Proteo-phage-1 RNA: a 79-nucleotide RNA sequence from Pseudomonas sp. R81. Rfam classes the family as a small RNA.
[Rfam]
RNA sequence: UUGUGGCCAGGACAGCCCUCGGGAAGUCCUGGACACUGAUAAGCCGGUAAUGCAGCCCUACGGAACAACAUUGACGUCC
Numbered sequence: 001u002u003g004u005g006g007c008c009a010g011g012a013c014a015g016c017c018c019u020c021g022g023g024a025a026g027u028c029c030u031g032g033a034c035a036c037u038g039a040u041a042a043g044c045c046g047g048u049a050a051u052g053c054a055g056c057c058c059u060a061c062g063g064a065a066c067a068a069c070a071u072u073g074a075c076g077u078c079c
Stems, first nucleotide, its partner, number of pairs: 001015004007032005016023002036055003043075001045073003